The record is an 84-nucleotide sequence from Kingdonia uniflora, which matches "Small nucleolar RNA J33" in Rfam. The literature on the family includes a 2003 paper in Nucleic Acids Res by Chen et al., "The high diversity of snoRNAs in plants: identification and comparative study of 120 snoRNA genes from Oryza sativa". Its family is annotated with nucleolus and RNA processing in the Gene Ontology.

RNA sequence: CAGUCAGAGGGAUGAUGUAUUACCGGAGGGCGUUAAAGCUUCAGGCUUUUCUUGACAUGGCUUCUGAAAGUGGUAAAGUGACUG
Numbered sequence: 001c002a003g004u005c006a007g008a009g010g011g012a013u014g015a016u017g018u019a020u021u022a023c024c025g026g027a028g029g030g031c032g033u034u035a036a037a038g039c040u041u042c043a044g045g046c047u048u049u050u051c052u053u054g055a056c057a058u059g060g061c062u063u064c065u066g067a068a069a070g071u072g073g074u075a076a077a078g079u080g081a082c083u084g
Stems, first nucleotide, its partner, number of pairs: 001084006